The record is a 58-nucleotide sequence from Prochlorococcus marinus, which matches "Glutamine-II riboswitch aptamer" in Rfam.
RNA sequence: AGACGUUCAGCUCUAUUCGAGUCGCAGUUAGAUUCAAGCCAUGGAACGGGGACUUGAA
Numbered sequence: 001a002g003a004c005g006u007u008c009a010g011c012u013c014u015a016u017u018c019g020a021g022u023c024g025c026a027g028u029u030a031g032a033u034u035c036a037a038g039c040c041a042u043g044g045a046a047c048g049g050g051g052a053c054u055u056g057a058a
Stems, first nucleotide, its partner, number of pairs: 004048005010022004033058006039051002